[Rfam]
RNA: tRNA
RNA sequence: GCGGGUGUGGCGGAACUGGUAGACGCACUGGAUUUAGGUUCCAGCGCCGCAAGGCGUGGAGGUUCGAUUCCUCUCACCCGCA
Numbered sequence: 001g002c003g004g005g006u007g008u009g010g011c012g013g014a015a016c017u018g019g020u021a022g023a024c025g026c027a028c029u030g031g032a033u034u035u036a037g038g039u040u041c042c043a044g045c046g047c048c049g050c051a052a053g054g055c056g057u058g059g060a061g062g063u064u065c066g067a068u069u070c071c072u073c074u075c076a077c078c079c080g081c082a
Stems, first nucleotide, its partner, number of pairs: 001081007010026003028044005058074005